The family of this 379-nucleotide part of an RNA from Falseniella ignava is "Bacterial large subunit ribosomal RNA". Taxonomically the source falls in Falseniella ignava (Bacteria, Bacilli, Lactobacillales, Aerococcaceae). The literature on the family includes a 2001 paper in Science by Yusupov et al., "Crystal structure of the ribosome at 5.5 A resolution".
RNA sequence: GCAAGACGGGUGAGAAUCCCGUCCACCGAAAGACUAAGGUUUCCUGGGGAAGGCUCGUCCGCCCAGGGUUAGUCGGGACCUAAGCUGAAGCCGAUAGGUAUAGGCGAUGGAUAACAGGUAGAGAUUCCUGUACUUGGAUUAAACGAUUGAGUGAUGGAGGGACACAGGAGGUUGUGUUCAUCGCCCUGAUGGAAUAGGGCGUCCAAGCACCGAGCUUUGUCAUGAGUGAAAUGCUUAUGACUGAAGGGUAAGGUGUGAUGGGGAGCGAAGUUUAGUAGCGAAGUGAAUAGAUCAAACUGUCGAGAAAAGCUUCUAGCGAGUUUAACCAACCCGUACCGAGAACCGACACAGGUAGUCAAGUGGAGAACACUCAGGUGAG
Number, nucleotide and partner (000 for none) at each position: 001g000002c000003a000004a000005g023006a022007c021008g020009g019010g018011u000012g000013a000014g000015a000016a000017u000018c010019c009020c008021g007022u006023c005024c377025a376026c375027c374028g000029a000030a000031a000032g357033a356034c355035u354036a000037a000038g337039g336040u000041u000042u000043c067044c066045u065046g064047g063048g062049g000050a000051a000052g060053g059054c000055u000056c000057g000058u000059c053060c052061g000062c048063c047064c046065a045066g044067g043068g000069u000070u000071a000072g000073u000074c333075g332076g331077g330078a000079c110080c109081u000082a000083a000084g105085c104086u103087g000088a101089a000090g099091c098092c097093g000094a000095u000096a000097g092098g091099u090100a000101u088102a000103g086104g085105c084106g000107a000108u000109g080110g079111a000112u000113a000114a131115c130116a129117g128118g127119u000120a000121g000122a000123g000124a000125u000126u000127c118128c117129u116130g115131u114132a000133c000134u329135u328136g327137g326138a000139u000140u324141a323142a322143a321144c320145g000146a000147u000148u000149g000150a000151g317152u316153g000154a000155u000156g313157g312158a311159g310160g000161g000162a000163c000164a300165c299166a298167g297168g000169a000170g293171g292172u291173u000174g000175u000176g288177u287178u286179c285180a284181u000182c201183g200184c199185c198186c197187u000188g000189a000190u000191g000192g000193a000194a000195u000196a000197g186198g185199g184200c183201g182202u000203c261204c260205a000206a000207g256208c255209a254210c253211c000212g000213a000214g249215c248216u247217u000218u000219g241220u240221c239222a238223u237224g236225a000226g234227u233228g000229a000230a000231a000232u000233g227234c226235u000236u224237a223238u222239g221240a220241c219242u000243g000244a000245a000246g000247g216248g215249u214250a000251a000252g000253g210254u209255g208256u207257g000258a000259u000260g204261g203262g000263g000264a000265g279266c278267g000268a276269a000270g000271u000272u000273u000274a000275g000276u268277a000278g266279c265280g000281a000282a000283g000284u180285g179286a178287a177288u176289a000290g000291a172292u171293c170294a000295a000296a000297c167298u166299g165300u164301c000302g000303a000304g000305a000306a000307a000308a000309g000310c159311u158312u157313c156314u000315a000316g152317c151318g000319a000320g144321u143322u142323u141324a140325a000326c137327c136328a135329a134330c077331c076332c075333g074334u000335a000336c039337c038338g000339a000340g000341a000342a000343c352344c351345g000346a000347c000348a000349c000350a000351g344352g343353u000354a035355g034356u033357c032358a000359a371360g370361u369362g368363g000364a000365g000366a000367a000368c362369a361370c360371u359372c000373a000374g027375g026376u025377g024378a000379g000